[Rfam]
RNA sequence: GGUCAUGAGUGCCAGCGCCAAGCCCCGGCUCGCUGGCCGGCAACCCUCCGUCCGCGGCGGGGUGCCCCGGGUGAGGACCAGGUCGAGACGCCGCCGCCGAGGCGGGCGUCAGGCAAGCGCGGACU
Numbered sequence: 001g002g003u004c005a006u007g008a009g010u011g012c013c014a015g016c017g018c019c020a021a022g023c024c025c026c027g028g029c030u031c032g033c034u035g036g037c038c039g040g041c042a043a044c045c046c047u048c049c050g051u052c053c054g055c056g057g058c059g060g061g062g063u064g065c066c067c068c069g070g071g072u073g074a075g076g077a078c079c080a081g082g083u084c085g086a087g088a089c090g091c092c093g094c095c096g097c098c099g100a101g102g103c104g105g106g107c108g109u110c111a112g113g114c115a116a117g118c119g120c121g122g123a124c125u
Stems, first nucleotide, its partner, number of pairs: 001079004009038001011037006021030002039066003044062003048057002082114003087110006

The record is a 125-nucleotide RNA sequence from Allonocardiopsis opalescens, which matches "SAM (S-adenosyl methionine) riboswitch aptamer" in Rfam.